[Rfam]
Background
This 104-nucleotide RNA sequence from Plantactinospora sp. KBS50 belongs to the Rfam family "Glycine riboswitch aptamer". NCBI's taxonomy places the organism under Bacteria, Actinomycetota, Actinomycetes, Micromonosporales, Plantactinospora. On this family, see Mandal et al., Science 2004: "A glycine-dependent riboswitch that uses cooperative binding to control gene expression".
RNA sequence: ACCACCCACGCGGGAGAGACCGCCACCCGGACACCGCCGGGAGCGGCGCCGAAGGGGCAAAUCCUCCCCGGAACCUCUCAGGCACAAGGGACCGCGGGGGCAGG
Numbered sequence: 001a002c003c004a005c006c007c008a009c010g011c012g013g014g015a016g017a018g019a020c021c022g023c024c025a026c027c028c029g030g031a032c033a034c035c036g037c038c039g040g041g042a043g044c045g046g047c048g049c050c051g052a053a054g055g056g057g058c059a060a061a062u063c064c065u066c067c068c069c070g071g072a073a074c075c076u077c078u079c080a081g082g083c084a085c086a087a088g089g090g091a092c093c094g095c096g097g098g099g100g101c102a103g104g
Base pairs, nucleotide, nucleotide: 006099007098009096010095011094012093013092020046021045022044023043048083049082050081051079052078055077056076057075062070